[Rfam]
RNA sequence: UUAUACCCGUGUUUUGGGUGAGGGAUAGUAGCGGAAAUCCUUUUUUUUGACUUAGAAAAGUUAAGCCUUAUGUUGUUAAGCGAAGGAAAAAAAAGAUUACAGCGGAUAGCCCGACCUUUC
Numbered sequence: 001u002u003a004u005a006c007c008c009g010u011g012u013u014u015u016g017g018g019u020g021a022g023g024g025a026u027a028g029u030a031g032c033g034g035a036a037a038u039c040c041u042u043u044u045u046u047u048u049g050a051c052u053u054a055g056a057a058a059a060g061u062u063a064a065g066c067c068u069u070a071u072g073u074u075g076u077u078a079a080g081c082g083a084a085g086g087a088a089a090a091a092a093a094a095g096a097u098u099a100c101a102g103c104g105g106a107u108a109g110c111c112c113g114a115c116c117u118u119u120c
Stems, first nucleotide, its partner, number of pairs: 022112003026108002031103002036098004042093007
RNA: Flavo-1 RNA